A member of the RNA family "Bacterial RNase P class B" from Aerococcus kribbianus, 356 nucleotides long. Gene Ontology terms of the family: ribonuclease P activity, dimeric ribonuclease P complex and tRNA processing. Ribonuclease P (RNase P) is a ubiquitous endoribonuclease, found in archaea, bacteria and eukarya as well as chloroplasts and mitochondria. Its best characterised activity is the generation of mature 5'-ends of tRNAs by cleaving the 5'-leader elements of precursor-tRNAs. Cellular RNase Ps are ribonucleoproteins. The organism belongs to Aerococcus, within Bacteria. A search with the family's covariance model found it, with a score of 321 bits. Rfam classes the family as a ribozyme.
RNA sequence: AAUUUCAGGUAAUCGCGGGUAAAGUUAUUUUACCUGAGGAAAGUCCAUGCUCACACAAGCUGAGAUGCUUGUAGUGUUCGUGUCUAGCGAAAUCAUAAGCUAGAGCCAUGACGGCAGUUAAAAAAGCUAAGGCCUUUAGGCUAUGCUUGAGUCAACUUGAAAGUGCCACAGAGACGAUCUAAAUAUGAAAGUAUUUAGCUGGAACGCGGUAAACCCCUCGAGUGAGCAACCCAAACUUUGGUCGGGGCGUUUGUCUUAAGGAAUUCAACUAAAAGACAAGCUGUUUAACAGAGAUAGAUGAUUACCAAACUUAGUAUGAUCCUGCAUACUAAGGGAACAGAACAUGGCUUAUCGAA
Numbered sequence: 001a002a003u004u005u006c007a008g009g010u011a012a013u014c015g016c017g018g019g020u021a022a023a024g025u026u027a028u029u030u031u032a033c034c035u036g037a038g039g040a041a042a043g044u045c046c047a048u049g050c051u052c053a054c055a056c057a058a059g060c061u062g063a064g065a066u067g068c069u070u071g072u073a074g075u076g077u078u079c080g081u082g083u084c085u086a087g088c089g090a091a092a093u094c095a096u097a098a099g100c101u102a103g104a105g106c107c108a109u110g111a112c113g114g115c116a117g118u119u120a121a122a123a124a125a126g127c128u129a130a131g132g133c134c135u136u137u138a139g140g141c142u143a144u145g146c147u148u149g150a151g152u153c154a155a156c157u158u159g160a161a162a163g164u165g166c167c168a169c170a171g172a173g174a175c176g177a178u179c180u181a182a183a184u185a186u187g188a189a190a191g192u193a194u195u196u197a198g199c200u201g202g203a204a205c206g207c208g209g210u211a212a213a214c215c216c217c218u219c220g221a222g223u224g225a226g227c228a229a230c231c232c233a234a235a236c237u238u239u240g241g242u243c244g245g246g247g248c249g250u251u252u253g254u255c256u257u258a259a260g261g262a263a264u265u266c267a268a269c270u271a272a273a274a275g276a277c278a279a280g281c282u283g284u285u286u287a288a289c290a291g292a293g294a295u296a297g298a299u300g301a302u303u304a305c306c307a308a309a310c311u312u313a314g315u316a317u318g319a320u321c322c323u324g325c326a327u328a329c330u331a332a333g334g335g336a337a338c339a340g341a342a343c344a345u346g347g348c349u350u351a352u353c354g355a356a
Stems, first nucleotide, its partner, number of pairs: 004356003007352001008306007016036006041350003045347005050226005055072006078221003082217001083104006105112001106110001113216002116157004124148004131142003163214002165210003179198008230246003250280007281291004310333008